This 114-nucleotide sequence belongs to the Rfam family "drum RNA". Rfam classes the family as a small RNA. From the family's description: Firmicutes, Bacteroidetes (1 example), Proteobacteria (2 examples), Spirochaetes (2 examples).
RNA sequence: UGGCGUUGAAGUAAUGGACCGGUUCGGCAUCAGCCUGUUAUGGAGCCAAACCGUGGGUUAAGCGAAAACCACAAGCCGAAUAGAUUCACUCAAAUCGAAUGAAAAACGCAAAAU
Numbered sequence: 001u002g003g004c005g006u007u008g009a010a011g012u013a014a015u016g017g018a019c020c021g022g023u024u025c026g027g028c029a030u031c032a033g034c035c036u037g038u039u040a041u042g043g044a045g046c047c048a049a050a051c052c053g054u055g056g057g058u059u060a061a062g063c064g065a066a067a068a069c070c071a072c073a074a075g076c077c078g079a080a081u082a083g084a085u086u087c088a089c090u091c092a093a094a095u096c097g098a099a100u101g102a103a104a105a106a107c108g109c110a111a112a113a114u
Stems, first nucleotide, its partner, number of pairs: 001048004011041007019033001021031001024079004062109003083096004